[Rfam]
RNA sequence: CUCGGGGCUGAAGCCCCGAGCUUUGUUCUGACGGGCUUUCAGCCCA
Number, nucleotide and partner (000 for none) at each position: 001c020002u019003c018004g017005g016006g015007g014008c013009u000010g000011a000012a000013g008014c007015c006016c005017c004018g003019a002020g001021c000022u000023u000024u000025g000026u000027u000028c000029u000030g000031a000032c000033g045034g044035g043036c042037u041038u000039u000040c000041a037042g036043c035044c034045c033046a000
The family of this 46-nucleotide RNA sequence from Persicirhabdus sediminis is "Acido-Lenti-1 RNA". Lineage of the source: Bacteria > Pseudomonadati > Verrucomicrobiia > Verrucomicrobiales > Persicirhabdus. The family's RNA type in Rfam is small RNA. The match comes from Rfam's covariance-model search (42 bits). The base pairs follow the family's consensus structure, which is taken from published work.